Background
The family of this 69-nucleotide RNA is "Small nucleolar RNA SNORD123". It is one of the family's seed sequences. The base pairs follow the family's consensus structure, which was predicted with WAR. It is annotated as a C/D-box small nucleolar RNA.
[Rfam]
RNA sequence: GGUGAAAAUGAUGAAUUCUGGGGUGCUGACUCAUGUGAUCUGAAAAUGCCAUCCAUUUCCUGAUUCACC
Numbered sequence: 001g002g003u004g005a006a007a008a009u010g011a012u013g014a015a016u017u018c019u020g021g022g023g024u025g026c027u028g029a030c031u032c033a034u035g036u037g038a039u040c041u042g043a044a045a046a047u048g049c050c051a052u053c054c055a056u057u058u059c060c061u062g063a064u065u066c067a068c069c
Stems, first nucleotide, its partner, number of pairs: 001069006